Nucleotides: 113
Stems, first nucleotide, its partner, number of pairs: 006108002009105005020058003060093003063089002067087003073081002
Number, partner (000 for none) and nucleotide at each position: 001000g002000c003000g004000u005000c006108u007107u008000u009105c010104g011103c012102g013101g014000g015000a016000g017000a018000g019000a020058c021057u022056g023000g024000c025000c026000u027000g028000a029000u030000a031000c032000g033000c034000u035000u036000u037000u038000u039000u040000u041000u042000g043000a044000g045000u046000g047000u048000g049000a050000c051000g052000g053000g054000c055000g056022c057021g058020g059000c060093g061092c062091c063089g064088a065000a066000g067087g068086a069085g070000c071000a072000a073081c074080c075000g076000c077000c078000c079000c080074g081073g082000a083000a084000a085069c086068u087067c088064u089063c090000a091062g092061g093060c094000a095000a096000a097000u098000g099000g100000a101013c102012c103011g104010c105009g106000c107007g108006a109000g110000g111000c112000a113000u

About this RNA
Rfam assigns this 113-nucleotide RNA sequence from Erythrobacter insulae to the family "Glycine riboswitch aptamer". A search with the family's covariance model found it, with a score of 58 bits. The pairing is the family consensus, mapped onto this sequence. Its Rfam clan is "Glycine riboswitch clan".